RNA sequence: GAUAAGUGUAAAUUGUGAGAGGAUCUAAGGUGGGAUUGCUAACAACUCUGACUACUCCCAGAGUUGAAUCAUAAAUUCCCCCAAAAAACAUCGCUUUAGCCACUAAUAAUAAAGCGCCGACUCCCAAGAACAACAGGUGAUGACCUAAAAUAAUCCCCAGUUUUUUAGAAUCAUUCCA
Numbered sequence: 001g002a003u004a005a006g007u008g009u010a011a012a013u014u015g016u017g018a019g020a021g022g023a024u025c026u027a028a029g030g031u032g033g034g035a036u037u038g039c040u041a042a043c044a045a046c047u048c049u050g051a052c053u054a055c056u057c058c059c060a061g062a063g064u065u066g067a068a069u070c071a072u073a074a075a076u077u078c079c080c081c082c083a084a085a086a087a088a089c090a091u092c093g094c095u096u097u098a099g100c101c102a103c104u105a106a107u108a109a110u111a112a113a114g115c116g117c118c119g120a121c122u123c124c125c126a127a128g129a130a131c132a133a134c135a136g137g138u139g140a141u142g143a144c145c146u147a148a149a150a151u152a153a154u155c156c157c158c159a160g161u162u163u164u165u166u167a168g169a170a171u172c173a174u175u176c177c178a
Stems, first nucleotide, its partner, number of pairs: 136175006145168004